[Rfam]
RNA sequence: UCUUCCAAGGAGCGUUGCGACGAGAAUCACUUUCUCGCCAGGCUUGGAGUCAAAGGCGUUUUCCGUGUGUUUUGGUUUCUUUUUAUCAAUUUUGAUGUGAAGAAUGAGAAUAUUUCGGGUUUCGCUUGCCACAACUGCGCUCACGUUAC
Numbered sequence: 001u002c003u004u005c006c007a008a009g010g011a012g013c014g015u016u017g018c019g020a021c022g023a024g025a026a027u028c029a030c031u032u033u034c035u036c037g038c039c040a041g042g043c044u045u046g047g048a049g050u051c052a053a054a055g056g057c058g059u060u061u062u063c064c065g066u067g068u069g070u071u072u073u074g075g076u077u078u079c080u081u082u083u084u085a086u087c088a089a090u091u092u093u094g095a096u097g098u099g100a101a102g103a104a105u106g107a108g109a110a111u112a113u114u115u116c117g118g119g120u121u122u123c124g125c126u127u128g129c130c131a132c133a134a135c136u137g138c139g140c141u142c143a144c145g146u147u148a149c
Base pairs, nucleotide, nucleotide: 003049004048005047006046007045008044021037022036023035024034025033026032

This 149-nucleotide RNA from Cognatundibacterium jejuense belongs to the Rfam family "SAH (S-adenosyl-L-homocysteine) riboswitch aptamer". Taxonomically the source falls in Cognatundibacterium (Bacteria, Pseudomonadati, Betaproteobacteria, Oxalobacteraceae). A search with the family's covariance model found it, with a score of 47 bits.